[Rfam]
A member of the RNA family "SAM riboswitch aptamer (S box leader)" from Spirosoma sp. KCTC 42546, 100 nucleotides long. The family's consensus secondary structure is taken from published work. A search with the family's covariance model found it, with a score of 72 bits.
RNA sequence: GAUUUAUAAAGAAAGGGGGAGAGACAGGCUCUGCGAACCCUUAGCAACUUGCCAGUUGGUGAUAGUGCUAACCUGCCUACCUAGUUAGGAACUAUAAAUU
Numbered sequence: 001g002a003u004u005u006a007u008a009a010a011g012a013a014a015g016g017g018g019g020a021g022a023g024a025c026a027g028g029c030u031c032u033g034c035g036a037a038c039c040c041u042u043a044g045c046a047a048c049u050u051g052c053c054a055g056u057u058g059g060u061g062a063u064a065g066u067g068c069u070a071a072c073c074u075g076c077c078u079a080c081c082u083a084g085u086u087a088g089g090a091a092c093u094a095u096a097a098a099u100u
Base pairs, nucleotide, nucleotide: 001100002099003098004097005096006095007094008093013042014041015040016039017038021031022030023029025075026074027073043069044068045067046066048065049064050061051060052059053058076089077088078087079086
Background
Taxonomically the source falls in Spirosoma (Bacteria, Pseudomonadati, Cytophagales, Cytophagaceae).